[Rfam]
RNA sequence: UGGUUAUGAUGAAGUUUAUUCCACAACAUUCGCGGUUUCCACCAGAAGAAUAAGCUCUAUUCUGAAGAUGGCCCAUUGUCCUUCCUUGGAUGUCUGAACCA
Numbered sequence: 001u002g003g004u005u006a007u008g009a010u011g012a013a014g015u016u017u018a019u020u021c022c023a024c025a026a027c028a029u030u031c032g033c034g035g036u037u038u039c040c041a042c043c044a045g046a047a048g049a050a051u052a053a054g055c056u057c058u059a060u061u062c063u064g065a066a067g068a069u070g071g072c073c074c075a076u077u078g079u080c081c082u083u084c085c086u087u088g089g090a091u092g093u094c095u096g097a098a099c100c101a
Base pairs, nucleotide, nucleotide: 001101002100003099004098048062049061050060051059052058
The record is a 101-nucleotide sequence from Biomphalaria glabrata, which matches "Small nucleolar RNA SNORD14" in Rfam. Rfam's curators write: U14 small nucleolar RNA (U14 snoRNA) is required for early cleavages of eukaryotic precursor rRNAs. Taxonomically the source falls in Biomphalaria (Eukaryota, Bilateria, Spiralia, Gastropoda). Its family is annotated with RNA processing and nucleolus in the Gene Ontology. The literature on the family includes a 1996 paper in Nucleic Acids Res by Samarsky et al., "An essential domain in Saccharomyces cerevisiae U14 snoRNA is absent in vertebrates, but conserved in other yeasts". A search with the family's covariance model found it, with a score of 74 bits. The family has 18 seed sequences and 4,559 matches in Rfam 15.1.